[Rfam]
RNA sequence: AGCUACAAGGCCAAACCCGUCGUGAGACGGGGGACGGGAAAACCAUGGGUCUCCAGCUUGCUGGAGAUCGCCAGGUUGCCGGUU
Numbered sequence: 001a002g003c004u005a006c007a008a009g010g011c012c013a014a015a016c017c018c019g020u021c022g023u024g025a026g027a028c029g030g031g032g033g034a035c036g037g038g039a040a041a042a043c044c045a046u047g048g049g050u051c052u053c054c055a056g057c058u059u060g061c062u063g064g065a066g067a068u069c070g071c072c073a074g075g076u077u078g079c080c081g082g083u084u
Stems, first nucleotide, its partner, number of pairs: 001084001003081001011037002016032002018029004035070001041077004046073003049068003
RNA: c-di-GMP-I-GGC riboswitch aptamer